[Rfam]
RNA sequence: UGCUGAAAUUGAGGCCACUCUCCGAGCAUCGGACCCCGCCUGGGGGGCACCCUACCCAGCGAGGGGCACUCCCGCGGGAGCCGAAGCG
Numbered sequence: 001u002g003c004u005g006a007a008a009u010u011g012a013g014g015c016c017a018c019u020c021u022c023c024g025a026g027c028a029u030c031g032g033a034c035c036c037c038g039c040c041u042g043g044g045g046g047g048c049a050c051c052c053u054a055c056c057c058a059g060c061g062a063g064g065g066g067c068a069c070u071c072c073c074g075c076g077g078g079a080g081c082c083g084a085a086g087c088g
Stems, first nucleotide, its partner, number of pairs: 001088004

A member of the RNA family "Z6 small nucleolar RNA" from Nothoprocta ornata, 88 nucleotides long. It scores 35 bits against the family's covariance model. Rfam links the family to the GO terms RNA processing and nucleolus. A reference for the family is Galardi et al. (2002), "Purified box C/D snoRNPs are able to reproduce site-specific 2'-O-methylation of target RNA in vitro", Mol Cell Biol. The base pairs follow the family's consensus structure, which was predicted with PFOLD.